[Rfam]
RNA sequence: GAUUGCGAUGACGACCUCGAAAUUUCAAGCUCAACAGACCGGAUUGUAGUUCUCUCUCUUCAAAAAGAGAUGGAUUUACGUGUCGACGACCCCGCUGAACUGAGCAAUC
Dot-bracket structure: ((((((.................................................................................................))))))

This 109-nucleotide RNA from Asparagus officinalis belongs to the Rfam family "Small nucleolar RNA Z107/R87". The source organism's lineage runs through Eukaryota, Streptophytina, Mesangiospermae, Petrosaviidae and Asparagus. Rfam links the family to the GO terms RNA processing and nucleolus.